Source information:
SAM riboswitch aptamer (S box leader): a 104-nucleotide RNA from Lysinibacillus sp. BF-4. The base pairs follow the family's consensus structure, which is taken from published work. A search with the family's covariance model found it, with a score of 91 bits. The SAM riboswitch is found upstream of a number of genes which code for proteins involved in methionine or cysteine biosynthesis in Gram-positive bacteria. Lineage of the source: Bacteria > Bacillati > Caryophanales > Bacillaceae > Lysinibacillus.

RNA sequence: UUCUUAUCGAGAGAGAUCGAGGGACAGGCCCUAUGACAUCUCGGCAACAGGUUUUCUUAACACUGUGCCAAAUCCUGCAAACGUCUAUGUUUGAAAGAUGAGAA
Numbered sequence: 001u002u003c004u005u006a007u008c009g010a011g012a013g014a015g016a017u018c019g020a021g022g023g024a025c026a027g028g029c030c031c032u033a034u035g036a037c038a039u040c041u042c043g044g045c046a047a048c049a050g051g052u053u054u055u056c057u058u059a060a061c062a063c064u065g066u067g068c069c070a071a072a073u074c075c076u077g078c079a080a081a082c083g084u085c086u087a088u089g090u091u092u093g094a095a096a097g098a099u100g101a102g103a104a
Base pairs, nucleotide, nucleotide: 001104002103003102004101005100006099007098008097013042014041015040016039017038021031022030023029025077026076027075028074043069044068045067046066048065049064050061052059073096078093079092080091081090082089083088